[Rfam]
RNA sequence: GGUUUCCAUUGGUGCAAAUCCAAUCACCUAGAUUUGAGUGAAAGCAAUUACCCAUUGGUAGCAAAUAGUUAUCAAUUAAGCGGAGGAAAUAGUAU
Numbered sequence: 001g002g003u004u005u006c007c008a009u010u011g012g013u014g015c016a017a018a019u020c021c022a023a024u025c026a027c028c029u030a031g032a033u034u035u036g037a038g039u040g041a042a043a044g045c046a047a048u049u050a051c052c053c054a055u056u057g058g059u060a061g062c063a064a065a066u067a068g069u070u071a072u073c074a075a076u077u078a079a080g081c082g083g084a085g086g087a088a089a090u091a092g093u094a095u
Base pairs, nucleotide, nucleotide: 009023010022011021012020052083053082054076055075057073058072059071060070061069062068

Rfam assigns this 95-nucleotide RNA sequence from Musa balbisiana to the family "Plastid-rps12 3UTR RNA". For this family Rfam cites "Retrograde signaling in plants: A critical review focusing on the GUN pathway and beyond" (Richter et al., Plant Commun, 2023). Plastid rpl20 is a non-coding RNA (ncRNA) recognised in plastids. It was found in the three prime untranslated region (3UTR) of rps12 gene, its 3UTR location sugest a role in transcript maduration. Pairs were carried over by alignment from the consensus structure, which was predicted with LocARNA.